Nucleotides: 120
Base pairs, nucleotide, nucleotide: 007028009026032113034080035079036078037077038076039075040074041073042072046060047059048058049057050056063070064069086106088105089104090103091102092101093100094099
Number, partner (000 for none) and nucleotide at each position: 001000g002000a003000c004000g005000a006000u007028c008000g009026c010000g011000a012000u013000g014000u015000u016000u017000c018000u019000c020000g021000c022000a023000g024000u025000g026009g027000u028007g029000a030000u031000a032113g033000g034080g035079c036078g037077c038076a039075u040074g041073g042072g043000c044000a045000c046060g047059a048058u049057g050056g051000c052000a053000u054000a055000g056050c057049c058048a059047u060046c061000u062000g063070g064069c065000g066000a067000a068000a069064g070063c071000a072042c073041c074040c075039a076038u077037g078036c079035g080034c081000g082000g083000u084000a085000a086106g087000c088105a089104g090103g091102c092101u093100c094099c095000u096000g097000a098000c099094g100093g101092g102091g103090c104089c105088u106086u107000u108000u109000u110000u111000a112000u113032u114000g115000c116000c117000c118000g119000g120000a

Shown here is a 120-nucleotide sequence from Rhizobium sp. P32RR-XVIII, a member of the family "Rhizobiales sRNA Atu_C8". By type it is a small RNA. The source organism's lineage runs through Bacteria, Pseudomonadati, Pseudomonadota, Hyphomicrobiales and Rhizobium. A search with the family's covariance model found it, with a score of 103 bits. For this family Rfam cites "Deep sequencing uncovers numerous small RNAs on all four replicons of the plant pathogen Agrobacterium tumefaciens" (Wilms et al., RNA Biol, 2012).